A member of the RNA family "Mammalian CPEB3 ribozyme" from Alligator sinensis, 77 nucleotides long.
The source organism's lineage runs through Eukaryota, Dipnotetrapodomorpha, Archelosauria, Crocodylia and Alligator.
Pairs were carried over by alignment from the consensus structure, which is taken from published work.
The match comes from Rfam's covariance-model search (43 bits).
Rfam links the family to the GO term RNA nuclease activity.
Nucleotides: 077
Base pairs, nucleotide, nucleotide: 013045015044016043017042021077023075024074025073026072027071028040030038049066050065051064052063053062054061
Number, partner (000 for none) and nucleotide at each position: 001000g002000g003000u004000c005000a006000c007000a008000a009000g010000u011000u012000u013045g014000a015044g016043g017042c018000c019000a020000u021077a022000g023075c024074a025073g026072a027071g028040g029000u030038g031000u032000u033000c034000a035000c036000a037000g038030c039000u040028c041000u042017g043016c044015c045013c046000u047000g048000u049066c050065a051064g052063a053062u054061u055000c056000c057000a058000a059000c060000a061054a062053a063052u064051c065050u066049g067000u068000g069000a070000a071027u072026u073025c074024u075023g076000a077021u